This 130-nucleotide sequence from Atlantisia rogersi belongs to the Rfam family "Small nucleolar RNA SNORA24". It scores 62 bits against the family's covariance model. Rfam's curators write: ACA24 is a member of the H/ACA class of snoRNA that guide the sites of modification of uridines to pseudouridines. Lineage of the source: Eukaryota > Chordata > Euteleostomi > Sarcopterygii > Atlantisia.
RNA sequence: CUCCAUGACUCCAUGGGGGCUGCCGCCGUGGCUGUCUCCCUUCCUAGGCAUGGAAGAGCAGUUGCUUGCUAAUUGGCAAAGCUUGUACCCUCCGGUGGGUAUCAGUCGUUGACUGUGGCGAGCCACAGCC
Numbered sequence: 001c002u003c004c005a006u007g008a009c010u011c012c013a014u015g016g017g018g019g020c021u022g023c024c025g026c027c028g029u030g031g032c033u034g035u036c037u038c039c040c041u042u043c044c045u046a047g048g049c050a051u052g053g054a055a056g057a058g059c060a061g062u063u064g065c066u067u068g069c070u071a072a073u074u075g076g077c078a079a080a081g082c083u084u085g086u087a088c089c090c091u092c093c094g095g096u097g098g099g100u101a102u103c104a105g106u107c108g109u110u111g112a113c114u115g116u117g118g119c120g121a122g123c124c125a126c127a128g129c130c
Base pairs, nucleotide, nucleotide: 002054003053004052005051006050007049015040016039017038018037020034022032023031024030067127068126073121074120075119079114082105083104087100088099089098090097